About this RNA
The record is a 122-nucleotide RNA sequence from Cucurbita maxima, which matches "Small nucleolar RNA SNORD14" in Rfam. Lineage of the source: Eukaryota > Streptophytina > rosids > Cucurbiteae > Cucurbita. The base pairs follow the family's consensus structure, which was predicted with PFOLD. By type it is a C/D-box small nucleolar RNA. Gene Ontology terms of the family: nucleolus and RNA processing. From the family's description: U14 small nucleolar RNA (U14 snoRNA) is required for early cleavages of eukaryotic precursor rRNAs. In yeasts, this molecule possess a stem-loop region (known as the Y-domain) which is essential for function. A similar structure, but with a different consensus sequence, is found in plants, but is absent in vertebrates.

[Rfam]
RNA sequence: UGACAAUGAUGAUAUCUGUAAGGCUUGUUUCUCAAAACAUUCGCAGUGGCCGCCUAAGAGCUUUCGCCUUCGCCGGGCUUGAGAGCUAGUGCUGCUUUAUCCUUCCUUGGAUGUCUGAGUCU
Numbered sequence: 001u002g003a004c005a006a007u008g009a010u011g012a013u014a015u016c017u018g019u020a021a022g023g024c025u026u027g028u029u030u031c032u033c034a035a036a037a038c039a040u041u042c043g044c045a046g047u048g049g050c051c052g053c054c055u056a057a058g059a060g061c062u063u064u065c066g067c068c069u070u071c072g073c074c075g076g077g078c079u080u081g082a083g084a085g086c087u088a089g090u091g092c093u094g095c096u097u098u099a100u101c102c103u104u105c106c107u108u109g110g111a112u113g114u115c116u117g118a119g120u121c122u
Base pairs, nucleotide, nucleotide: 002121003120004119060086061085062084063083064082065081